Background:
This 77-nucleotide sequence from Alligator sinensis belongs to the Rfam family "Mammalian CPEB3 ribozyme".

RNA sequence: AGCUGCAAGUUUGAGGCCAUAGCAGAAGUACUUGUACCACAGCCUUAUCAGACUCAAAUGAAUCUGCAAAUUCUGCU
Numbered sequence: 001a002g003c004u005g006c007a008a009g010u011u012u013g014a015g016g017c018c019a020u021a022g023c024a025g026a027a028g029u030a031c032u033u034g035u036a037c038c039a040c041a042g043c044c045u046u047a048u049c050a051g052a053c054u055c056a057a058a059u060g061a062a063u064c065u066g067c068a069a070a071u072u073c074u075g076c077u
Stems, first nucleotide, its partner, number of pairs: 014045004021077007028040002049066004054061002